[Rfam]
RNA: 6S / SsrS RNA
Organism: Proteiniclasticum sediminis
RNA sequence: AGAAUCCUGAAGUGUUCGCGUAGCCUAUAUAUUCAACCUACAUUAUAGAUCCGGGAUCCUCCACAAAAGGAAUGAUAUCAGACUUAAAUGGUAGCUACCUUUUCCUAGGAACAUAAGGAGAUAGACAAUUCCUUUGCGAGGAACCCACCUGCUGAGGGCAGGUAUGGAUUAAUAGGUGGACGGCAUGUCGGGAAACUA
Number, nucleotide and partner (000 for none) at each position: 001a000002g196003a000004a000005u193006c192007c191008u190009g189010a188011a000012g186013u185014g184015u183016u000017c182018g181019c000020g000021u000022a000023g000024c000025c000026u000027a000028u000029a000030u000031a170032u000033u167034c166035a165036a163037c162038c161039u000040a000041c000042a000043u000044u000045a000046u000047a000048g000049a000050u000051c000052c000053g146054g145055g144056a000057u142058c141059c140060u139061c138062c000063a000064c136065a000066a135067a134068a133069g132070g131071a130072a129073u000074g000075a000076u000077a000078u121079c120080a000081g000082a000083c117084u116085u115086a114087a000088a000089u000090g000091g000092u000093a000094g000095c000096u000097a000098c000099c000100u000101u000102u000103u000104c000105c000106u000107a000108g000109g000110a000111a000112c000113a000114u086115a085116a084117g083118g000119a000120g079121a078122u000123a000124g000125a000126c000127a000128a000129u072130u071131c070132c069133u068134u067135u066136g064137c000138g061139a060140g059141g058142a057143a000144c055145c054146c053147a000148c000149c000150u000151g000152c000153u000154g000155a000156g000157g000158g000159c000160a000161g038162g037163u036164a000165u035166g034167g033168a000169u000170u031171a000172a000173u000174a000175g000176g000177u000178g000179g000180a000181c018182g017183g015184c014185a013186u012187g000188u010189c009190g008191g007192g006193a005194a000195a000196c002197u000198a000